The record is a 52-nucleotide RNA from Mesobaculum littorinae, which matches "ffh sRNA" in Rfam. The family's consensus secondary structure is taken from published work.
[Rfam]
RNA sequence: GGUCCCGGGGAUCGCCUCCCACCAGCGCGUUGCGCCCGUGGGAGCGUUUGGC
Numbered sequence: 001g002g003u004c005c006c007g008g009g010g011a012u013c014g015c016c017u018c019c020c021a022c023c024a025g026c027g028c029g030u031u032g033c034g035c036c037c038g039u040g041g042g043a044g045c046g047u048u049u050g051g052c
Stems, first nucleotide, its partner, number of pairs: 016044007025035004
The source organism's lineage runs through Bacteria, Pseudomonadati, Alphaproteobacteria, Roseobacteraceae and Mesobaculum.